[Rfam]
RNA sequence: AAAUUUUAAACGCUUAAUUCUAUACAUAGAAGCGGGGGAACCAAGUAUCUGGGGUGAAUCCUUUUACUUUUAGGAUGGGUUACCCUUUAUCCCUAACCCGACAGCUAACCUCGUAUGCGUAAAGGGGAGUUGUA
Dot-bracket structure: ..........(((....(((........)))((((((....((......))(((.....(((.........)))..(((...........)))...))).........))))))..)))...............
RNA: c-di-AMP riboswitch aptamer (ydaO/yuaA leader)
Organism: Alkalibaculum bacchi